[Rfam]
RNA sequence: CGCUAUACUAGCUUCUGAAAUUACCGGUCCACUCCCUUCGGACCGGUUUUCAUUGAAU
Numbered sequence: 001c002g003c004u005a006u007a008c009u010a011g012c013u014u015c016u017g018a019a020a021u022u023a024c025c026g027g028u029c030c031a032c033u034c035c036c037u038u039c040g041g042a043c044c045g046g047u048u049u050u051c052a053u054u055g056a057a058u
Base pairs, nucleotide, nucleotide: 002012003011004010005009016052017051018050019049023047024046025045026044027043028042029041030040
Dot-bracket structure: .((((...))))...((((...((((((((.........)))))))).))))......